[Rfam]
Nucleotides: 114
Base pairs, nucleotide, nucleotide: 010101011100012099013098014097015096016095018093019092021090022089023088024087025086026085027084028083029082030081031080033078034077035076036075037074038073039072040071041070042069043068044067045066046065047064048063049062
Number, partner (000 for none) and nucleotide at each position: 001000u002000u003000g004000u005000g006000g007000g008000g009000u010101a011100g012099a013098c014097g015096u016095u017000u018093g019092g020000g021090c022089u023088c024087a025086g026085g027084c028083u029082g030081g031080a032000c033078c034077c035076u036075g037074g038073g039072c040071u041070c042069u043068g044067g045066g046065a047064c048063c049062u050000u051000c052000c053000c054000c055000u056000c057000u058000u059000g060000c061000c062049g063048g064047g065046u066045c067044u068043c069042a070041g071040a072039g073038u074037c075036c076035g077034g078033g079000c080031u081030c082029c083028a084027g085026u086025c087024u088023g089022a090021g091000c092019c093018c094000a095016g096015a097014u098013g099012u100011c101010u102000a103000c104000a105000u106000g107000g108000c109000u110000a111000u112000u113000u114000u

Description
mraW RNA: a 114-nucleotide RNA sequence from Terrapene triunguis. It is annotated as a cis-regulatory element. The match comes from Rfam's covariance-model search (54 bits). NCBI's taxonomy places the organism under Eukaryota, Deuterostomia, Gnathostomata, Sarcopterygii, Terrapene.